[Rfam]
The family of this 146-nucleotide sequence from Clostridiales bacterium COT073_COT-073 is "Ribosomal protein L10 leader". Gene Ontology term of the family: regulation of gene expression. About the family: This family is a putative r-protein leader autoregulatory structure found in B. subtilis and other low-GC Gram-positive bacteria. It is located in the 5' untranslated regions of mRNAs encoding ribosomal proteins L10 and L12 (rplJ-rplL). A Rho-independent transcription terminator structure that is probably involved in regulation is included at the 3' end. NCBI's taxonomy places the organism under Bacteria, Bacillati, Bacillota, Clostridia, Eubacteriales. The base pairs follow the family's consensus structure, which was predicted with CMfinder. The family's RNA type in Rfam is cis-regulatory leader.
RNA sequence: CACACGUGGAAAAAUUGUCCAAAGACAGCAGGUGCAUUUGCACAACGUAUACCAACCUGCCGAGGCUACAUAGGAAGAUAAGGGGCAUACCCUUUGAUAUGACAUGUAAUCUCUUUGUUUUUGGCAAAGAGUUUUUUUGUGGGUGG
Numbered sequence: 001c002a003c004a005c006g007u008g009g010a011a012a013a014a015u016u017g018u019c020c021a022a023a024g025a026c027a028g029c030a031g032g033u034g035c036a037u038u039u040g041c042a043c044a045a046c047g048u049a050u051a052c053c054a055a056c057c058u059g060c061c062g063a064g065g066c067u068a069c070a071u072a073g074g075a076a077g078a079u080a081a082g083g084g085g086c087a088u089a090c091c092c093u094u095u096g097a098u099a100u101g102a103c104a105u106g107u108a109a110u111c112u113c114u115u116u117g118u119u120u121u122u123g124g125c126a127a128a129g130a131g132u133u134u135u136u137u138u139g140u141g142g143g144u145g146g
Stems, first nucleotide, its partner, number of pairs: 028060006034041002111131009